The record is a 117-nucleotide RNA sequence from Cucumis sativus, which matches "MIR828 microRNA precursor family" in Rfam. Its family is annotated with miRNA-mediated post-transcriptional gene silencing and RISC complex in the Gene Ontology. Lineage of the source: Eukaryota > Streptophyta > Tracheophyta > Euphyllophyta > Cucumis.
RNA sequence: GCAAUGUUUCUUGCUCAAAUGAGUAUUCCAAGUUCGAGCACCAAAUGUGUCAAAAUGCAAUUUAAUGCACAUUUUGGUGUUUGCUUUUGCGAUGCUCAUUUCAGUAAGAAAUGUUGC
Dot-bracket structure: ...(((((.((((((.(((((((((((.((.........................................................)).))))))))))).)))))).)))))...